[Rfam]
RNA sequence: CUGCUCUGGCUGGUCAAAGGGAACCACGGCUGUCUUCCUUGAAGGUUUGGUCCCCUUUAACCAGCUACAGCAG
Numbered sequence: 001c002u003g004c005u006c007u008g009g010c011u012g013g014u015c016a017a018a019g020g021g022a023a024c025c026a027c028g029g030c031u032g033u034c035u036u037c038c039u040u041g042a043a044g045g046u047u048u049g050g051u052c053c054c055c056u057u058u059a060a061c062c063a064g065c066u067a068c069a070g071c072a073g
Base pairs, nucleotide, nucleotide: 003071004070005069008066009065010064011063012062013061014060016058017057018056020053021052022051024050025049026048028046030044
RNA: mir-133 microRNA precursor family
Organism: Anolis carolinensis